Source information
The family of this 111-nucleotide RNA from Heyndrickxia shackletonii is "epsC RNA". It scores 102 bits against the family's covariance model. Pairs were carried over by alignment from the consensus structure, which is taken from published work. Taxonomically the source falls in Heyndrickxia (Bacteria, Bacillota, Bacilli, Caryophanales).

[Rfam]
RNA sequence: UGGUGAUGCCUCCUAACCAUUAUCAAACGGAGACACUCGGUCAUGCUGUGGGUCCUAAAACCUUAGACGCUAGUCGUCAAGAGUGUGAUGUGAGGGGGGGUUUAAUGCCCC
Numbered sequence: 001u002g003g004u005g006a007u008g009c010c011u012c013c014u015a016a017c018c019a020u021u022a023u024c025a026a027a028c029g030g031a032g033a034c035a036c037u038c039g040g041u042c043a044u045g046c047u048g049u050g051g052g053u054c055c056u057a058a059a060a061c062c063u064u065a066g067a068c069g070c071u072a073g074u075c076g077u078c079a080a081g082a083g084u085g086u087g088a089u090g091u092g093a094g095g096g097g098g099g100g101u102u103u104a105a106u107g108c109c110c111c
Stems, first nucleotide, its partner, number of pairs: 001019004007035002010032004036094004040089008050063004066078004097111005